[Rfam]
This 90-nucleotide RNA from Dendrobium nobile belongs to the Rfam family "mir-160 microRNA precursor family". Pairs were carried over by alignment from the consensus structure, which was predicted with PFOLD. The literature on the family includes a 2002 paper in Cell by Rhoades et al., "Prediction of plant microRNA targets".
RNA sequence: CAAUGCCUGGCUCCCUGUAUGCCACACGUGUGGACCAAUCCAUGCACAGAGACUGGCCACUGCGGGUGGCGUGCGAGGAGCCAAGCAUUC
Numbered sequence: 001c002a003a004u005g006c007c008u009g010g011c012u013c014c015c016u017g018u019a020u021g022c023c024a025c026a027c028g029u030g031u032g033g034a035c036c037a038a039u040c041c042a043u044g045c046a047c048a049g050a051g052a053c054u055g056g057c058c059a060c061u062g063c064g065g066g067u068g069g070c071g072u073g074c075g076a077g078g079a080g081c082c083a084a085g086c087a088u089u090c
Base pairs, nucleotide, nucleotide: 002089003088004087005086006085008083009082010081011080012079013078014077016075017074018073019072020071021070022069023068024067027064028063029062